[Rfam]
RNA sequence: AUGUUCGGGCAAUCGCUCUGUUUAUAGCGAACAGAGAGGAAAGUCCAUGCUCGCACAACCUUAAAGGGUUGUAGUGACCGUGCCUGACGAAACCAUAAGUCAGGGCAGUUCGGUUUUUUGUAGAUAAGAAAGUAUAACUUUCUUAUCAUGCAUAAGUGCAACUAAGGCUUUCGCCAGGCUUGGCGAUAAGCCAAGAGUUUUCUUUACUGAACUGACGGCGCAAGGAACACCUACGUUCUUACAAAGAAUAGGGUUAUCCUUCUGAAAGUGCCACAGUGACGAAGUCUUCGCGGAAACGCGGAGAGUGGAACGCGGUAAACCCCUCGAGCGAGUAACCCAAAUGAUGGUAGGGGCAUUUUCCCUGUUGGAAACGACGGGGAGAGGCGAUUGAUUCGCAGAUAGAUGAUUGCCGUCGCUUUGCAAGGUUAACAGCCGGAGCACAGCGAUACAGAACAUGGCUUACAGAA
Number, nucleotide and partner (000 for none) at each position: 001a000002u000003g000004u467005u466006c465007g463008g411009g410010c409011a408012a407013u406014c405015g000016c036017u035018c034019u033020g032021u031022u000023u000024a000025u000026a000027g000028c000029g000030a000031a021032c020033a019034g018035a017036g016037a000038g000039g000040a000041a461042a460043g459044u000045c458046c457047a456048u455049g454050c332051u331052c330053g329054c328055a072056c071057a070058a069059c068060c067061u000062u000063a000064a000065a000066g000067g060068g059069u058070u057071g056072u055073a000074g000075u000076g000077a000078c000079c326080g325081u000082g323083c104084c103085u102086g101087a100088c099089g000090a000091a000092a000093c000094c000095a000096u000097a000098a000099g088100u087101c086102a085103g084104g083105g216106c214107a213108g212109u211110u210111c209112g208113g207114u206115u000116u000117u000118u000119u000120g000121u000122a000123g000124a000125u000126a000127a000128g000129a000130a000131a000132g000133u000134a000135u000136a000137a000138c000139u000140u000141u000142c000143u000144u000145a000146u000147c000148a000149u000150g000151c000152a000153u000154a000155a000156g000157u000158g000159c000160a000161a000162c000163u000164a000165a000166g000167g000168c000169u000170u000171u000172c000173g000174c000175c000176a000177g000178g000179c000180u000181u000182g000183g000184c000185g000186a000187u000188a000189a000190g000191c000192c000193a000194a000195g000196a000197g000198u000199u000200u000201u000202c000203u000204u000205u000206a114207c113208u112209g111210a110211a109212c108213u107214g106215a000216c105217g322218g321219c000220g262221c000222a260223a000224g000225g000226a000227a000228c000229a254230c253231c252232u000233a000234c000235g249236u248237u247238c246239u245240u000241a000242c000243a000244a000245a239246g238247a237248a236249u235250a000251g000252g231253g230254u229255u000256a000257u000258c000259c000260u222261u000262c220263u000264g000265a000266a000267a000268g320269u319270g316271c315272c314273a000274c000275a000276g000277u000278g000279a000280c000281g000282a000283a000284g000285u304286c303287u302288u301289c300290g299291c298292g297293g000294a000295a000296a000297c292298g291299c290300g289301g288302a287303g286304a285305g000306u000307g000308g000309a000310a000311c000312g000313c000314g272315g271316u270317a000318a000319a269320c268321c218322c217323c082324u000325c080326g079327a000328g054329c053330g052331a051332g050333u000334a000335a000336c352337c351338c350339a000340a000341a000342u000343g000344a000345u000346g000347g000348u000349a000350g338351g337352g336353g000354c000355a000356u383357u382358u381359u380360c379361c378362c377363u000364g000365u000366u000367g000368g000369a000370a000371a000372c000373g000374a000375c000376g000377g362378g361379g360380a359381g358382a357383g356384g396385c395386g394387a393388u000389u000390g000391a000392u000393u387394c386395g385396c384397a000398g000399a000400u000401a000402g000403a000404u000405g014406a013407u012408u011409g010410c009411c008412g000413u446414c445415g444416c443417u442418u000419u440420g439421c438422a000423a000424g000425g000426u000427u000428a000429a000430c000431a000432g000433c000434c000435g000436g000437a000438g421439c420440a419441c000442a417443g416444c415445g414446a413447u000448a000449c000450a000451g000452a000453a000454c049455a048456u047457g046458g045459c043460u042461u041462a000463c007464a000465g006466a005467a004
Shown here is a 467-nucleotide RNA sequence from Natribacillus halophilus, a member of the family "Bacterial RNase P class B". A search with the family's covariance model found it, with a score of 276 bits. Rfam's curators write: Ribonuclease P (RNase P) is a ubiquitous endoribonuclease, found in archaea, bacteria and eukarya as well as chloroplasts and mitochondria. Its best characterised activity is the generation of mature 5'-ends of tRNAs by cleaving the 5'-leader elements of precursor-tRNAs.